[Rfam]
RNA sequence: AAAGGGGGACAGAGCAGAGGCUGGGAAGAGGCAGAGCAUGGAUUGAGUUAUUGACAGAGACAGGGGCUGUUUUGGCUCGACCCUGCACUGCCUCUUCCCUGGCUGUUGCCUCUUCCCUCUGC
Numbered sequence: 001a002a003a004g005g006g007g008g009a010c011a012g013a014g015c016a017g018a019g020g021c022u023g024g025g026a027a028g029a030g031g032c033a034g035a036g037c038a039u040g041g042a043u044u045g046a047g048u049u050a051u052u053g054a055c056a057g058a059g060a061c062a063g064g065g066g067c068u069g070u071u072u073u074g075g076c077u078c079g080a081c082c083c084u085g086c087a088c089u090g091c092c093u094c095u096u097c098c099c100u101g102g103c104u105g106u107u108g109c110c111u112c113u114u115c116c117c118u119c120u121g122c
Stems, first nucleotide, its partner, number of pairs: 018104002021101001023099005029093006036086003040083002045078002
RNA: MIR408 microRNA precursor family